[Rfam]
RNA sequence: CGGGAGCAACCGACGUUAGGGAAUUCGGCAAGUUAGUCCCGUACGUUCGCAAGAAGGGAUGCCUGCCUCCUUCGAGGCAGGUCGCAGAGACCAGGACGCUCCGACUGUCUAGUAACAACACAGGUGACCGCAAAUCCGCAAGGACUCGUACGGUCACUGAAUCCUGCCCAGUGCGGGUAUCUGAACACCCAGUACAAUGGGACGAAGGACCCGUUAACGGCGGGGGUAACUAUGACCCUCUUAAGGUAGCGUAGUACCUUGCCGCUUCAGUAGCGGCUUGCACGAAUGGAUGAACGAGAGCGUCACUGUCCCAACGUCGGGCCCGGUGAACUGUACGUUCCAGUGCGGAGUCUGGAGC
Numbered sequence: 001c002g003g004g005a006g007c008a009a010c011c012g013a014c015g016u017u018a019g020g021g022a023a024u025u026c027g028g029c030a031a032g033u034u035a036g037u038c039c040c041g042u043a044c045g046u047u048c049g050c051a052a053g054a055a056g057g058g059a060u061g062c063c064u065g066c067c068u069c070c071u072u073c074g075a076g077g078c079a080g081g082u083c084g085c086a087g088a089g090a091c092c093a094g095g096a097c098g099c100u101c102c103g104a105c106u107g108u109c110u111a112g113u114a115a116c117a118a119c120a121c122a123g124g125u126g127a128c129c130g131c132a133a134a135u136c137c138g139c140a141a142g143g144a145c146u147c148g149u150a151c152g153g154u155c156a157c158u159g160a161a162u163c164c165u166g167c168c169c170a171g172u173g174c175g176g177g178u179a180u181c182u183g184a185a186c187a188c189c190c191a192g193u194a195c196a197a198u199g200g201g202a203c204g205a206a207g208g209a210c211c212c213g214u215u216a217a218c219g220g221c222g223g224g225g226g227u228a229a230c231u232a233u234g235a236c237c238c239u240c241u242u243a244a245g246g247u248a249g250c251g252u253a254g255u256a257c258c259u260u261g262c263c264g265c266u267u268c269a270g271u272a273g274c275g276g277c278u279u280g281c282a283c284g285a286a287u288g289g290a291u292g293a294a295c296g297a298g299a300g301c302g303u304c305a306c307u308g309u310c311c312c313a314a315c316g317u318c319g320g321g322c323c324c325g326g327u328g329a330a331c332u333g334u335a336c337g338u339u340c341c342a343g344u345g346c347g348g349a350g351u352c353u354g355g356a357g358c
Stems, first nucleotide, its partner, number of pairs: 001325004010320008019311003036060005045050001061082009083087001095304007102296002106120003123158008131148001135144003161291004166221003171218002173214005180209003188201004222240006241245001261277006339356005
The record is a 358-nucleotide part of an RNA from Natronoarchaeum philippinense, which matches "Archaeal large subunit ribosomal RNA" in Rfam.